[Rfam]
RNA: Actinobacteria sRNA Ms_IGR-5
Organism: Enemella evansiae
RNA sequence: ACGCAGGAAAGGAGGUGGUCCUACCGAUGAAUGAUCAAAGGACUUGUGAGGUGGCUCGCCGCUGAGGCGUCCACACCCCGAAAGGGAGGACUCCGUGGCGAAUCCACACGAGCCACCGGGCCCGCGGGUGCCGGACCGGUCCACCGGCGACACAAGCCCGCGGGCUCUUCCAC
Numbered sequence: 001a002c003g004c005a006g007g008a009a010a011g012g013a014g015g016u017g018g019u020c021c022u023a024c025c026g027a028u029g030a031a032u033g034a035u036c037a038a039a040g041g042a043c044u045u046g047u048g049a050g051g052u053g054g055c056u057c058g059c060c061g062c063u064g065a066g067g068c069g070u071c072c073a074c075a076c077c078c079c080g081a082a083a084g085g086g087a088g089g090a091c092u093c094c095g096u097g098g099c100g101a102a103u104c105c106a107c108a109c110g111a112g113c114c115a116c117c118g119g120g121c122c123c124g125c126g127g128g129u130g131c132c133g134g135a136c137c138g139g140u141c142c143a144c145c146g147g148c149g150a151c152a153c154a155a156g157c158c159c160g161c162g163g164g165c166u167c168u169u170c171c172a173c
Stems, first nucleotide, its partner, number of pairs: 014059001017056003060100005066094002069091004074086001076084001118167012130148005